[Rfam]
RNA sequence: GGACACACCCCUGGAGAGACUCUUUAUAAAAGGGCAUCGAAGAAGAAACCUGAUUAGUCGGGGAAACUUUCAGAUAAAAGGACAGGGUAUAAAUU
Numbered sequence: 001g002g003a004c005a006c007a008c009c010c011c012u013g014g015a016g017a018g019a020c021u022c023u024u025u026a027u028a029a030a031a032g033g034g035c036a037u038c039g040a041a042g043a044a045g046a047a048a049c050c051u052g053a054u055u056a057g058u059c060g061g062g063g064a065a066a067c068u069u070u071c072a073g074a075u076a077a078a079a080g081g082a083c084a085g086g087g088u089a090u091a092a093a094u095u
Base pairs, nucleotide, nucleotide: 009087010086011085012084013083020034021033022032023031036075037074038073039071040070043069044068045067049062050061